[Rfam]
Source information:
A member of the RNA family "Group II catalytic intron D1-D4-3", 169 nucleotides long.
RNA sequence: ACCGCCGCGAGGCGGGGUCUGAAGGAAGCAUGGAUCAAACGUGCGAGUCGAUGGACAAAUACCGGAUAUAAGGCGCCAGCGCCGGACGAAGGGGCAACUUACCGCGAAGUCCAUAUCCAUCAAGGGUGCGAAGCGUAGAUCCGGCGACUGUGCACGGAAGGCGGCUGAG
Numbered sequence: 001a002c003c004g005c006c007g008c009g010a011g012g013c014g015g016g017g018u019c020u021g022a023a024g025g026a027a028g029c030a031u032g033g034a035u036c037a038a039a040c041g042u043g044c045g046a047g048u049c050g051a052u053g054g055a056c057a058a059a060u061a062c063c064g065g066a067u068a069u070a071a072g073g074c075g076c077c078a079g080c081g082c083c084g085g086a087c088g089a090a091g092g093g094g095c096a097a098c099u100u101a102c103c104g105c106g107a108a109g110u111c112c113a114u115a116u117c118c119a120u121c122a123a124g125g126g127u128g129c130g131a132a133g134c135g136u137a138g139a140u141c142c143g144g145c146g147a148c149u150g151u152g153c154a155c156g157g158a159a160g161g162c163g164g165c166u167g168a169g
Stems, first nucleotide, its partner, number of pairs: 002015005032165001036161001040156006046149005062144006073136003077130001079129004084112004092103002
The base pairs follow the family's consensus structure.